This 299-nucleotide RNA from Oryzias javanicus belongs to the Rfam family "Metazoan signal recognition particle RNA". About the family: The signal recognition particle (SRP) is a universally conserved ribonucleoprotein. Pairs were carried over by alignment from the consensus structure, which is taken from published work.
RNA sequence: GCCGGGUGUGGUGGCGUGCGCCUGUAAUCCAAGCUCCAUGGAGGCUGAGGCUGGAGGAUGGUUGGAGCUCAGGAGCUCUGAGCUGCAGUGGACUAUGUUGAUCAGGUGUCCACACUCAGCUCGGUAUCGAUAUGGUCUUCCUGGGGGAGCCCGGGACAACCAGGUCGUCUAAGGAGGGGUGAAUCGGCCCAGGUUGGAAACGGAGCAGGUCAAAGCCCGCGUGCCGUUCAGUGGUGGGAUCACACCUGAGAGUAGAUGCUGCAGUGCAGCCUGAGCAACACAUCCAGACCCAGUCUUUU
Number, nucleotide and partner (000 for none) at each position: 001g045002c044003c043004g023005g022006g021007u020008g019009u018010g017011g000012u000013g000014g000015c000016g000017u010018g009019c008020g007021c006022c005023u004024g000025u000026a000027a000028u042029c041030c040031a000032a000033g000034c000035u000036c000037c000038a000039u000040g030041g029042a028043g003044g002045c001046u000047g297048a296049g295050g294051c293052u292053g291054g290055a000056g000057g000058a000059u286060g285061g284062u000063u282064g281065g000066a000067g276068c275069u274070c273071a272072g271073g270074a000075g000076c000077u000078c269079u268080g267081a000082g265083c264084u263085g262086c261087a260088g259089u258090g257091g000092a000093c255094u254095a253096u252097g000098u250099u000100g000101a000102u249103c248104a247105g246106g245107u244108g243109u242110c238111c237112a000113c236114a235115c234116u233117c000118a000119g229120c000121u000122c226123g225124g224125u223126a222127u221128c167129g166130a165131u164132a000133u162134g161135g160136u159137c000138u000139u156140c155141c154142u153143g152144g151145g150146g000147g000148a000149g000150c145151c144152c143153g142154g141155g140156a139157c000158a000159a136160c135161c134162a133163g000164g131165u130166c129167g128168u174169c173170u000171a000172a000173g169174g168175a000176g000177g218178g217179g216180u215181g000182a000183a000184u000185c000186g211187g210188c209189c208190c000191a000192g000193g000194u203195u202196g201197g000198a000199a000200a000201c196202g195203g194204a000205g000206c000207a000208g189209g188210u187211c186212a000213a000214a000215g180216c179217c178218c177219g000220c000221g127222u126223g125224c124225c123226g122227u000228u000229c119230a000231g000232u000233g116234g115235u114236g113237g111238g110239a000240u000241c000242a109243c108244a107245c106246c105247u104248g103249a102250g098251a000252g096253u095254a094255g093256a000257u090258g089259c088260u087261g086262c085263a084264g083265u082266g000267c080268a079269g078270c073271c072272u071273g070274a069275g068276c067277a000278a000279c000280a000281c064282a063283u000284c061285c060286a059287g000288a000289c000290c054291c053292a052293g051294u050295c049296u048297u047298u000299u000